RNA sequence: ACCUGUCGCGGACGGCUGUGCGAGCCGGGUCGCGGCACAAGACAGAAACACCGUGCCACGGAACAACGUGGCACUUCAGGGCGUU
Numbered sequence: 001a002c003c004u005g006u007c008g009c010g011g012a013c014g015g016c017u018g019u020g021c022g023a024g025c026c027g028g029g030u031c032g033c034g035g036c037a038c039a040a041g042a043c044a045g046a047a048a049c050a051c052c053g054u055g056c057c058a059c060g061g062a063a064c065a066a067c068g069u070g071g072c073a074c075u076u077c078a079g080g081g082c083g084u085u
Stems, first nucleotide, its partner, number of pairs: 004037008013027003017024001053074008
Rfam assigns this 85-nucleotide sequence from Streptomyces ipomoeae to the family "nrdJ RNA". The sequence is in the family's curated seed alignment.